[Rfam]
RNA sequence: UGUCUCUUGCUUCAACAGUGUUUGGAUGGAAUUG
Dot-bracket structure: .((.(((.(.((((((...).)))))))))))..

A member of the RNA family "Iron response element I" from Myotis davidii, 34 nucleotides long. For this family Rfam cites "Structured RNA upstream of insect cap distal iron responsive elements enhances iron regulatory protein-mediated control of translation" (Nichol and Winzerling, Insect Biochem Mol Biol, 2002). Its family is annotated with response to iron ion in the Gene Ontology.